[Rfam]
RNA sequence: CCGGCUCCGGUUCACGAUGCGGUACCGAUGCGUUCCAGCUUCGUGCUCGCCCUGCGCGAGCCCGCUCGACCCGGCGGCC
Numbered sequence: 001c002c003g004g005c006u007c008c009g010g011u012u013c014a015c016g017a018u019g020c021g022g023u024a025c026c027g028a029u030g031c032g033u034u035c036c037a038g039c040u041u042c043g044u045g046c047u048c049g050c051c052c053u054g055c056g057c058g059a060g061c062c063c064g065c066u067c068g069a070c071c072c073g074g075c076g077g078c079c
Stems, first nucleotide, its partner, number of pairs: 003079003007074004015068003019065003
Shown here is a 79-nucleotide sequence, a member of the family "L31-Actinobacteria ribosomal protein leader". On this family, see Eckert and Weinberg, BMC Microbiol 2020: "Discovery of 20 novel ribosomal leader candidates in bacteria and archaea". It is annotated as a cis-regulatory leader.